[Rfam]
RNA sequence: UUGGGGGAUAGCUGGACGCAGCGAAAACCCGGAACGUCCGCACCGGGCCUCCCCCGUAUCACCUCCUGCGG
Numbered sequence: 001u002u003g004g005g006g007g008a009u010a011g012c013u014g015g016a017c018g019c020a021g022c023g024a025a026a027a028c029c030c031g032g033a034a035c036g037u038c039c040g041c042a043c044c045g046g047g048c049c050u051c052c053c054c055c056g057u058a059u060c061a062c063c064u065c066c067u068g069c070g071g
Base pairs, nucleotide, nucleotide: 002056003055004054005053006052007051008050011022012021013020014019028047029046030045031044032043037071038070
int-alpA RNA: a 71-nucleotide RNA from Olavius algarvensis associated proteobacterium Delta 3. Rfam describes the family as follows. Acidobacteria (1 example), Planctomycetes (1 example), Proteobacteria. Taxonomically the source falls in Deltaproteobacteria (Bacteria, delta/epsilon subdivisions). It scores 40 bits against the family's covariance model.